[Rfam]
RNA sequence: UGGAAGAAUGAUACACAGGAUACAAAUAGCUAAGUUCCUCGUCAUAGUUUCUUCCUAUAAGAAGAUUGCCUUCUGAUGACUGUAACUUGUUAAGUUUUAAUUUACAGACAGAUACGGGGCAUACAAAA
Numbered sequence: 001u002g003g004a005a006g007a008a009u010g011a012u013a014c015a016c017a018g019g020a021u022a023c024a025a026a027u028a029g030c031u032a033a034g035u036u037c038c039u040c041g042u043c044a045u046a047g048u049u050u051c052u053u054c055c056u057a058u059a060a061g062a063a064g065a066u067u068g069c070c071u072u073c074u075g076a077u078g079a080c081u082g083u084a085a086c087u088u089g090u091u092a093a094g095u096u097u098u099a100a101u102u103u104a105c106a107g108a109c110a111g112a113u114a115c116g117g118g119g120c121a122u123a124c125a126a127a128a
Base pairs, nucleotide, nucleotide: 002055003054004053005052006051007050015042016041018039022035023034067121068120069119070118071117072116080107081106082105085102087100088099

This 128-nucleotide sequence from Bombus vosnesenskii belongs to the Rfam family "Small Cajal body specific RNA 8".
Rfam links the family to the GO terms Cajal body, nucleolus and RNA processing.
It is annotated as a small Cajal body RNA.
Taxonomically the source falls in Pyrobombus (Eukaryota, Ecdysozoa, Panarthropoda, Bombini).
scaRNAs are a specific class of small nuclear RNAs which localise to the Cajal bodies and guide the modification of RNA polymerase II transcribed spliceosomal RNAs U1, U2, U4, U5 and U12. U92 belong to the H/ACA box class of guide RNAs as it has the predicted hairpin-hinge-hairpin-tail structure, conserved H/ACA-box motifs and is found associated with GAR1.
Pairs were carried over by alignment from the consensus structure, which is taken from published work.
It scores 70 bits against the family's covariance model.